[Rfam]
RNA: transfer-messenger RNA
RNA sequence: GGGGGCGUACUGGUUUCGACAGGGGUAGUUAUGGUAUGGGUAGCGAGCCGGGGUCCCAUCAGCCCGUAAUACGGUGGAACUAAAGUAAACGCAAACGAAGAUUACGCUUUAGCAGCUUAAUGCUAACGUCUUACCUACGCACUCCCGCGGCCUAGGAUAAGGCGUCACUUAGCGGGAUACCUGGGGCCCAAUUCUCGGAGGGCCGACUGGGAACCUUUAUCGAGAUAGUACCCGGGCAGCCUGUCUGUGGGCGGCAAGGGCGCGAAACUCAAAUCACCGACUGCGCUCGGAGAAACCCAUGCAGUAAUACCUUUGGACAGGAGUUCGAUUCUCCUCGCCUCCACCA
Numbered sequence: 001g002g003g004g005g006c007g008u009a010c011u012g013g014u015u016u017c018g019a020c021a022g023g024g025g026u027a028g029u030u031a032u033g034g035u036a037u038g039g040g041u042a043g044c045g046a047g048c049c050g051g052g053g054u055c056c057c058a059u060c061a062g063c064c065c066g067u068a069a070u071a072c073g074g075u076g077g078a079a080c081u082a083a084a085g086u087a088a089a090c091g092c093a094a095a096c097g098a099a100g101a102u103u104a105c106g107c108u109u110u111a112g113c114a115g116c117u118u119a120a121u122g123c124u125a126a127c128g129u130c131u132u133a134c135c136u137a138c139g140c141a142c143u144c145c146c147g148c149g150g151c152c153u154a155g156g157a158u159a160a161g162g163c164g165u166c167a168c169u170u171a172g173c174g175g176g177a178u179a180c181c182u183g184g185g186g187c188c189c190a191a192u193u194c195u196c197g198g199a200g201g202g203c204c205g206a207c208u209g210g211g212a213a214c215c216u217u218u219a220u221c222g223a224g225a226u227a228g229u230a231c232c233c234g235g236g237c238a239g240c241c242u243g244u245c246u247g248u249g250g251g252c253g254g255c256a257a258g259g260g261c262g263c264g265a266a267a268c269u270c271a272a273a274u275c276a277c278c279g280a281c282u283g284c285g286c287u288c289g290g291a292g293a294a295a296c297c298c299a300u301g302c303a304g305u306a307a308u309a310c311c312u313u314u315g316g317a318c319a320g321g322a323g324u325u326c327g328a329u330u331c332u333c334c335u336c337g338c339c340u341c342c343a344c345c346a
Stems, first nucleotide, its partner, number of pairs: 001342007020315008029306001032304001034302008044289005049066004054079001056077005110126001112124001115123002127164006134156004139151002142149001143177006180211005193225005228263002231260003236255002239252003243281003247275001319335005